Notes
Rfam assigns this 88-nucleotide RNA sequence from Crossiella cryophila to the family "ZMP/ZTP riboswitch aptamer (pfl RNA motif)". It scores 62 bits against the family's covariance model. On this family, see Jones and Ferre-D'Amare, Nat Struct Mol Biol 2015: "Recognition of the bacterial alarmone ZMP through long-distance association of two RNA subdomains".
RNA sequence: UCACCCGGUCGCGACUGGCGUGUUCGGGUGGACUCAACCACCGGGGAGCGGCACGGUUCGGUGCGCGCCGUACGCCUGGGCGCAGCCG
Number, nucleotide and partner (000 for none) at each position: 001u000002c000003a057004c056005c055006c000007g000008g052009u051010c050011g049012c048013g000014a000015c045016u044017g076018g075019c074020g073021u072022g000023u000024u000025c000026g000027g000028g041029u040030g039031g038032a000033c000034u000035c000036a000037a000038c031039c030040a029041c028042c000043g000044g016045g015046g000047a000048g012049c011050g010051g009052c008053a000054c000055g005056g004057u003058u000059c000060g000061g000062u000063g000064c000065g083066c082067g081068c080069c079070g000071u000072a021073c020074g019075c018076c017077u000078g000079g069080g068081c067082g066083c065084a000085g000086c000087c000088g000